[Rfam]
RNA sequence: UUGCUUUGGGGAUGUACAAGUCCAUGAAAUCAACCUACCUCCAUCCUUUCACUUUGUCAGCUGUUUUUUUUCGUUUCUUUUUUUGUCUUGCUGAUCAUUGUUGGAUGGAAUAGUU
Dot-bracket structure: .......................................((((((..........((((((.(........................).))))))........))))))......
RNA: Small nucleolar RNA snoR99
Organism: Malus baccata